[Rfam]
RNA sequence: AAUAGAUUUAUGUUAUAUUAGUAUUUUUAUCCUGAAUUUCAGCAUUUUCAUCCUGAAAAAAAUCAUAUCCAAAUUAAAAUCCUGAAAUUCAGAAUAAGAAUACUGAUGUGGCAUAAAACUGUU
Numbered sequence: 001a002a003u004a005g006a007u008u009u010a011u012g013u014u015a016u017a018u019u020a021g022u023a024u025u026u027u028u029a030u031c032c033u034g035a036a037u038u039u040c041a042g043c044a045u046u047u048u049c050a051u052c053c054u055g056a057a058a059a060a061a062a063u064c065a066u067a068u069c070c071a072a073a074u075u076a077a078a079a080u081c082c083u084g085a086a087a088u089u090c091a092g093a094a095u096a097a098g099a100a101u102a103c104u105g106a107u108g109u110g111g112c113a114u115a116a117a118a119c120u121g122u123u
Base pairs, nucleotide, nucleotide: 001123002122003121004120005119007117008116009115010114011113012112013111014110015109016108017107018106019105020104021103022102023101024100025099026098027097029095030094032092033091034090035089036088037087038086039085041083042082045079046078047077048076
The record is a 123-nucleotide RNA from Gossypium australe, which matches "MIR7504 microRNA precursor family" in Rfam. It scores 97 bits against the family's covariance model. Its family is annotated with miRNA-mediated post-transcriptional gene silencing and RISC complex in the Gene Ontology. Pairs were carried over by alignment from the consensus structure, which was predicted with RNAalifold.